Record summary: The family of this 109-nucleotide sequence from Tenacibaculum sp. MAR_2010_89 is "6S-Flavo RNA". Pairs were carried over by alignment from the consensus structure, which is taken from published work.

RNA sequence: ACUCAACACUAUUAAAUUAAAAAGGAUAAGUCUUGAUUAGUAAAGCACGCCGACUUUGUUUCGGAUUCUUGAUCAAUCAGUUAGUCCUAAACCUGUUCACCCGGAGUUU
Numbered sequence: 001a002c003u004c005a006a007c008a009c010u011a012u013u014a015a016a017u018u019a020a021a022a023a024g025g026a027u028a029a030g031u032c033u034u035g036a037u038u039a040g041u042a043a044a045g046c047a048c049g050c051c052g053a054c055u056u057u058g059u060u061u062c063g064g065a066u067u068c069u070u071g072a073u074c075a076a077u078c079a080g081u082u083a084g085u086c087c088u089a090a091a092c093c094u095g096u097u098c099a100c101c102c103g104g105a106g107u108u109u
Stems, first nucleotide, its partner, number of pairs: 023088005034079005043070003050064004
Dot-bracket structure: ......................(((((......(((((....(((....((((.......))))...)))....)))))....))))).....................
It is annotated as a small RNA.
The source organism's lineage runs through Bacteria, Pseudomonadati, Bacteroidota, Flavobacteriaceae and Tenacibaculum.